[Rfam]
RNA: Small nucleolar RNA Z162
RNA sequence: UGGGGCACGACGAGGAGUAAACUUCUACAUCGUUUCAUCGAGGUUCUUGGACCUAUGAGAGAUUGAACGAGUCCUUUUCAUUCUGAGUGCCCC
Numbered sequence: 001u002g003g004g005g006c007a008c009g010a011c012g013a014g015g016a017g018u019a020a021a022c023u024u025c026u027a028c029a030u031c032g033u034u035u036c037a038u039c040g041a042g043g044u045u046c047u048u049g050g051a052c053c054u055a056u057g058a059g060a061g062a063u064u065g066a067a068c069g070a071g072u073c074c075u076u077u078u079c080a081u082u083c084u085g086a087g088u089g090c091c092c093c
Base pairs, nucleotide, nucleotide: 004091005090006089007088008087010081012079013078014077043052044051045050